[Rfam]
Source information: mir-8799 microRNA precursor family: an 89-nucleotide RNA from Vulpes vulpes. Taxonomically the source falls in Vulpes (Eukaryota, Eumetazoa, Tetrapoda, Canidae). Clan: mir-8791 microRNA precursor clan.

RNA sequence: GGGGUUAGGCCGGAUCCUGGGCUGUGUCCCCAGUGCCCUGUGCUCCCGGGCCUGCGCUGUUGGAAUCGCACUCCCGGCCGCACAGCCCC
Numbered sequence: 001g002g003g004g005u006u007a008g009g010c011c012g013g014a015u016c017c018u019g020g021g022c023u024g025u026g027u028c029c030c031c032a033g034u035g036c037c038c039u040g041u042g043c044u045c046c047c048g049g050g051c052c053u054g055c056g057c058u059g060u061u062g063g064a065a066u067c068g069c070a071c072u073c074c075c076g077g078c079c080g081c082a083c084a085g086c087c088c089c
Base pairs, nucleotide, nucleotide: 001089002088003087004086009083011080012079013078016077017076019074020073021072023070024069025068026067027064028063030062031059032058033057034056035055036054040052042051043050044049
Dot-bracket structure: ((((....(.(((..((.(((.((((((.(((((((...(.(((....)))).))))))..)))..)))).))).)))))..)..))))